[Rfam]
RNA: Bacterial small signal recognition particle RNA
RNA sequence: GGCCGGGCCCUGUGCGACAGAACCCUGUGAACCCCGCCAGGUCCGGAAGGAAGCAACGGUAAGCGGUCAGUUCUGGGUGCCGCAGGAUCACCUGGCCCCG
Numbered sequence: 001g002g003c004c005g006g007g008c009c010c011u012g013u014g015c016g017a018c019a020g021a022a023c024c025c026u027g028u029g030a031a032c033c034c035c036g037c038c039a040g041g042u043c044c045g046g047a048a049g050g051a052a053g054c055a056a057c058g059g060u061a062a063g064c065g066g067u068c069a070g071u072u073c074u075g076g077g078u079g080c081c082g083c084a085g086g087a088u089c090a091c092c093u094g095g096c097c098c099c100g
Stems, first nucleotide, its partner, number of pairs: 004094004009086006015077001018075005025066004034059003042051003